Shown here is a 73-nucleotide RNA sequence from Caenorhabditis briggsae, a member of the family "mir-790 microRNA precursor family". For this family Rfam cites "Repertoire and evolution of miRNA genes in four divergent nematode species" (de Wit et al., Genome Res, 2009).

[Rfam]
RNA sequence: GAUUGCUUGGCACUCGCGAACACCGCGAUCACUUCCAAUAUCGAUCCGCGGAGUUAGCCAGUGUCAACCAAAU
Numbered sequence: 001g002a003u004u005g006c007u008u009g010g011c012a013c014u015c016g017c018g019a020a021c022a023c024c025g026c027g028a029u030c031a032c033u034u035c036c037a038a039u040a041u042c043g044a045u046c047c048g049c050g051g052a053g054u055u056a057g058c059c060a061g062u063g064u065c066a067a068c069c070a071a072a073u
Stems, first nucleotide, its partner, number of pairs: 003071003007067003011063003016058002019055003023051005